Shown here is a 45-nucleotide RNA from Granulosicoccus antarcticus, a member of the family "Guanidine-II riboswitch aptamer (mini-ykkC)". A search with the family's covariance model found it, with a score of 37 bits. Pairs were carried over by alignment from the consensus structure, which is taken from published work. Rfam links the family to the GO term regulation of gene expression.
[Rfam]
RNA sequence: GUCAGUGGACGACCUCUGGCUAAAUUUUUUAUACGGGACGACCCG
Numbered sequence: 001g002u003c004a005g006u007g008g009a010c011g012a013c014c015u016c017u018g019g020c021u022a023a024a025u026u027u028u029u030u031a032u033a034c035g036g037g038a039c040g041a042c043c044c045g
Base pairs, nucleotide, nucleotide: 001020002019003018004017005016007014008013034045035044036043037042